[Rfam]
RNA: TPP riboswitch aptamer (THI element)
RNA sequence: ACGAAACGACAGGGGAGCGCCUCCCGGCGCUGAGAGUGCGGCACCCGCCGCAGACCCUCCGAACCUGCACCGGUUAGCACCGGCGAAGGAAGUCGACAAGGAGAAGCC
Numbered sequence: 001a002c003g004a005a006a007c008g009a010c011a012g013g014g015g016a017g018c019g020c021c022u023c024c025c026g027g028c029g030c031u032g033a034g035a036g037u038g039c040g041g042c043a044c045c046c047g048c049c050g051c052a053g054a055c056c057c058u059c060c061g062a063a064c065c066u067g068c069a070c071c072g073g074u075u076a077g078c079a080c081c082g083g084c085g086a087a088g089g090a091a092g093u094c095g096a097c098a099a100g101g102a103g104a105a106g107c108c
Stems, first nucleotide, its partner, number of pairs: 007095004011058004017030005037052005064089003070083004
Dot-bracket structure: ......((((((((..(((((....)))))......(((((......)))))..)))).....(((...((((......))))...)))..)))).............